Background
A member of the RNA family "azaaromatic riboswitch aptamer (yjdF RNA)" from Clostridium cavendishii, 103 nucleotides long. Pairs were carried over by alignment from the consensus structure, which is taken from published work. A search with the family's covariance model found it, with a score of 85 bits. The organism belongs to Clostridium cavendishii, within Bacteria.
RNA sequence: AAUUAAAGAGAUAAAAACACAGUUUCUGUUGGUAGUCAGAACCUAUAAUUAAAUAUAGCAGUAACCUGCCCUCCUGGGGUUGUCCGUUCUCUUAAGAUUAGUU
Numbered sequence: 001a002a003u004u005a006a007a008g009a010g011a012u013a014a015a016a017a018c019a020c021a022g023u024u025u026c027u028g029u030u031g032g033u034a035g036u037c038a039g040a041a042c043c044u045a046u047a048a049u050u051a052a053a054u055a056u057a058g059c060a061g062u063a064a065c066c067u068g069c070c071c072u073c074c075u076g077g078g079g080u081u082g083u084c085c086g087u088u089c090u091c092u093u094a095a096g097a098u099u100a101g102u103u
Base pairs, nucleotide, nucleotide: 004095006093007092008091009090010089011088022042023041025040026039027038028037043058044057045056046055047054068080069079070078071077